Rfam assigns this 215-nucleotide sequence from Sandarakinorhabdus cyanobacteriorum to the family "permuted transfer-messenger RNA". NCBI's taxonomy places the organism under Bacteria, Alphaproteobacteria, Sphingomonadales, Sphingosinicellaceae, Sandarakinorhabdus. On this family, see Williams and Bartel, RNA 1996: "Phylogenetic analysis of tmRNA secondary structure". The base pairs follow the family's consensus structure, which is taken from published work.
[Rfam]
RNA sequence: GGCGAUAAAUGAUGCCGUGGAAUAGACGCAGCGGACCCGGGGGCAGUACCCGGCGGCUCCACCAUUCUCAAUCCCGUUGUCGGGGUGAAUUGCGGGGCCGAACCAGGAUCGACGUGUGUUCAAAGACGGUGUUUUUGCCCGGCCUGAAUGCGCCGUUAAACCGUUCAAAACCCACAAAUGCCAACGACAACGAGGCAUUCGCGAUCGCGGCGUAA
Numbered sequence: 001g002g003c004g005a006u007a008a009a010u011g012a013u014g015c016c017g018u019g020g021a022a023u024a025g026a027c028g029c030a031g032c033g034g035a036c037c038c039g040g041g042g043g044c045a046g047u048a049c050c051c052g053g054c055g056g057c058u059c060c061a062c063c064a065u066u067c068u069c070a071a072u073c074c075c076g077u078u079g080u081c082g083g084g085g086u087g088a089a090u091u092g093c094g095g096g097g098c099c100g101a102a103c104c105a106g107g108a109u110c111g112a113c114g115u116g117u118g119u120u121c122a123a124a125g126a127c128g129g130u131g132u133u134u135u136u137g138c139c140c141g142g143c144c145u146g147a148a149u150g151c152g153c154c155g156u157u158a159a160a161c162c163g164u165u166c167a168a169a170a171c172c173c174a175c176a177a178a179u180g181c182c183a184a185c186g187a188c189a190a191c192g193a194g195g196c197a198u199u200c201g202c203g204a205u206c207g208c209g210g211c212g213u214a215a
Stems, first nucleotide, its partner, number of pairs: 001139005015129004027118003031115003037053005054100007140155004